Shown here is a 128-nucleotide RNA sequence from Salarias fasciatus, a member of the family "Small nucleolar RNA SNORA63".
E3 belongs to the H/ACA class of snoRNAs and is involved in the processing of eukaryotic pre-rRNA and has regions of complementarity to 18S rRNA. E3 is encoded in introns in the gene for protein synthesis initiation factor 4AII.
The family's RNA type in Rfam is H/ACA-box small nucleolar RNA.
NCBI's taxonomy places the organism under Eukaryota, Euteleostomi, Percomorphaceae, Blennioidei, Salarias.

[Rfam]
RNA sequence: AAGCAGGAUAUCUACAGUGCAGCUGUUGUGGUGCUGUUUUGUCGUUCCCCCUGCUAACAAUAACCUGUUUCCAAGCUAUCCCUGUCUGCCUAACACCCAGACAGCCAGGGACGCAAGGUCUCAGACAA
Numbered sequence: 001a002a003g004c005a006g007g008a009u010a011u012c013u014a015c016a017g018u019g020c021a022g023c024u025g026u027u028g029u030g031g032u033g034c035u036g037u038u039u040u041g042u043c044g045u046u047c048c049c050c051c052u053g054c055u056a057a058c059a060a061u062a063a064c065c066u067g068u069u070u071c072c073a074a075g076c077u078a079u080c081c082c083u084g085u086c087u088g089c090c091u092a093a094c095a096c097c098c099a100g101a102c103a104g105c106c107a108g109g110g111a112c113g114c115a116a117g118g119u120c121u122c123a124g125a126c127a128a
Base pairs, nucleotide, nucleotide: 003054004053005052006051007050014042015041016040017039019037020036021035022034023033081109082108083107084106086104087103088102089100